[Rfam]
RNA: Small nucleolar RNA SNORD58
Organism: Tinamus guttatus
RNA sequence: UUGCUAUGAUGACCAUCUUAAGAUGCCUUUGGAAUGCCUGUGAAAAAAAAAAUAUAUGUAUUUCUGAGCAAC
Dot-bracket structure: ((((...............................................................)))).
Numbered sequence: 001u002u003g004c005u006a007u008g009a010u011g012a013c014c015a016u017c018u019u020a021a022g023a024u025g026c027c028u029u030u031g032g033a034a035u036g037c038c039u040g041u042g043a044a045a046a047a048a049a050a051a052a053u054a055u056a057u058g059u060a061u062u063u064c065u066g067a068g069c070a071a072c
Stems, first nucleotide, its partner, number of pairs: 001071004